A member of the RNA family "mir-718 microRNA precursor family" from Loxodonta africana, 64 nucleotides long.
Lineage of the source: Eukaryota > Opisthokonta > Euteleostomi > Amniota > Loxodonta.
The base pairs follow the family's consensus structure, which was predicted with RNAalifold.
The match comes from Rfam's covariance-model search (55 bits).
RNA sequence: GCGGCGGCGGCCGAGAUGGCGGCGGGGCCCGGGCACCGCCCCUUCCGUCCCGCCGGGCGUCGCA
Numbered sequence: 001g002c003g004g005c006g007g008c009g010g011c012c013g014a015g016a017u018g019g020c021g022g023c024g025g026g027g028c029c030c031g032g033g034c035a036c037c038g039c040c041c042c043u044u045c046c047g048u049c050c051c052g053c054c055g056g057g058c059g060u061c062g063c064a
Stems, first nucleotide, its partner, number of pairs: 001060002005055004009050002012047001015045002018042002021040005027034002